[Rfam]
Nucleotides: 068
Stems, first nucleotide, its partner, number of pairs: 011051007026040004055067004
Number, partner (000 for none) and nucleotide at each position: 001000u002000a003000g004000g005000u006000a007000g008000g009000a010000u011051c012050u013049u014048c015047u016046g017045u018000u019000a020000a021000g022000u023000u024000c025000g026040c027039u028038c029037a030000c031000g032000u033000c034000c035000u036000a037029u038028g039027a040026g041000u042000a043000a044000c045017a046016c047015a048014g049013a050012a051011g052000u053000c054000a055067g056066c057065a058064u059000a060000u061000c062000c063000u064058g065057u066056g067055c068000a
The family of this 68-nucleotide RNA sequence from Lederbergia lenta is "Bacillaceae-1 RNA". The family's consensus secondary structure is taken from published work. Taxonomically the source falls in Lederbergia (Bacteria, Bacillati, Bacillota, Bacilli). The family's RNA type in Rfam is small RNA. The match comes from Rfam's covariance-model search (48 bits).